Overview: Alphaproteobacteria transfer-messenger RNA: a 361-nucleotide RNA from Mesorhizobium sp. ORS 3428. A reference for the family is Williams and Bartel (1996), "Phylogenetic analysis of tmRNA secondary structure", RNA. A search with the family's covariance model found it, with a score of 309 bits. Lineage of the source: Bacteria > Pseudomonadota > Alphaproteobacteria > Phyllobacteriaceae > Mesorhizobium. Pairs were carried over by alignment from the consensus structure, which is taken from published work.
RNA sequence: GCCCUUUCAUUUUCCAUGAUCGCUCCCUAUAUUCGCUUCGUCGGCUUGACCGACUAUGGCGAUAAACAGGCGAUGAAAUAAGCCGUUCGGACCCGGGGGCGGUACCCGGCGCCUCCACCAAAAACCGCUCUUCUAAAGGGAGCGGCUUUUGCUGGGGGCGAAAUAGGAUCGACGAAGGUGUAAAGAUCGUACUUUCGCCCGGCAUUGUACCACCGUCAUCGGGCUAAACUUAUAGUUGCCAACGACAACUAUGCGGAAGCUCGUCUCGCCGCUUAAUGCGGUGCGAACGCUUCAAAUCAAGUCCUAGAGGUUCGCACUUCUAGGCGGGGUUCGGAGGUACCUGGCAACAGAAACCUCCACC
Dot-bracket structure: .......................................(((((.....)))))...(((((.......(((((........((..(((...(((((.......)))))(((((((.....................................)))))))............))).)).......)))))....)))))(((..[.[..[[.))).....]].].]....................................................................................................[[[[..((((((]]]]..........))))))...